Notes: tRNA: a 74-nucleotide RNA sequence from Nakaseomyces glabratus. It is annotated as a transfer RNA. The family's consensus secondary structure is taken from published work. The sequence is in the family's curated seed alignment.
[Rfam]
RNA sequence: GUAGAUAUAAUUUAAUCGGUAAAAUGUAUGUUUUUAGGGUACAUAUUAUCUAAGUUCAAAUCUUAGUAUUUACA
Numbered sequence: 001g002u003a004g005a006u007a008u009a010a011u012u013u014a015a016u017c018g019g020u021a022a023a024a025u026g027u028a029u030g031u032u033u034u035u036a037g038g039g040u041a042c043a044u045a046u047u048a049u050c051u052a053a054g055u056u057c058a059a060a061u062c063u064u065a066g067u068a069u070u071u072a073c074a
Base pairs, nucleotide, nucleotide: 001073002072003071004070005069006068007067010025011024012023013022028044029043030042031041050066051065052064053063054062